[Rfam]
RNA sequence: CUGAUUUUUGCUUCAACAGAGUUUGGACGGAACAG
Numbered sequence: 001c002u003g004a005u006u007u008u009u010g011c012u013u014c015a016a017c018a019g020a021g022u023u024u025g026g027a028c029g030g031a032a033c034a035g
Base pairs, nucleotide, nucleotide: 001035002034003033005032006031007030008029010028012027013026014025015024016023017021
Background: The record is a 35-nucleotide RNA from Octodon degus, which matches "Iron response element I" in Rfam. The literature on the family includes a 2006 paper in Science by Walden et al., "Structure of dual function iron regulatory protein 1 complexed with ferritin IRE-RNA". Pairs were carried over by alignment from the consensus structure, which is taken from published work.